[Rfam]
RNA sequence: UCCCGUUCCUAAGUACUAGUGCCGCAGGAGCGUAGAGCCGCAUCCUCCUGCUGCUCGAGUGCUUAUCAAUGGGA
Numbered sequence: 001u002c003c004c005g006u007u008c009c010u011a012a013g014u015a016c017u018a019g020u021g022c023c024g025c026a027g028g029a030g031c032g033u034a035g036a037g038c039c040g041c042a043u044c045c046u047c048c049u050g051c052u053g054c055u056c057g058a059g060u061g062c063u064u065a066u067c068a069a070u071g072g073g074a
Base pairs, nucleotide, nucleotide: 001074002073003072004071005070006069007068010065011064012063013062014061015060016059017058019056024051025050026049027048028047029046030045
Rfam assigns this 74-nucleotide RNA sequence from Ladona fulva to the family "mir-252 microRNA precursor family". It scores 73 bits against the family's covariance model.